[Rfam]
RNA sequence: UGCCUCAUUCUAGAUUAGAAUGGGCACUGUUGAUUGGUGUCCAAAACUGGUCAAUGUGGCUGAAAUUGUCACAGGUCAUGCUUCCAUCACAGUAAAUGUUUACAGUAGUGACAAAGAGACCUGUAACAUCU
Numbered sequence: 001u002g003c004c005u006c007a008u009u010c011u012a013g014a015u016u017a018g019a020a021u022g023g024g025c026a027c028u029g030u031u032g033a034u035u036g037g038u039g040u041c042c043a044a045a046a047c048u049g050g051u052c053a054a055u056g057u058g059g060c061u062g063a064a065a066u067u068g069u070c071a072c073a074g075g076u077c078a079u080g081c082u083u084c085c086a087u088c089a090c091a092g093u094a095a096a097u098g099u100u101u102a103c104a105g106u107a108g109u110g111a112c113a114a115a116g117a118g119a120c121c122u123g124u125a126a127c128a129u130c131u
Stems, first nucleotide, its partner, number of pairs: 002060003006056003021043007071124005085110003089106002
RNA: Small nucleolar RNA SNORA1
Organism: Cavia porcellus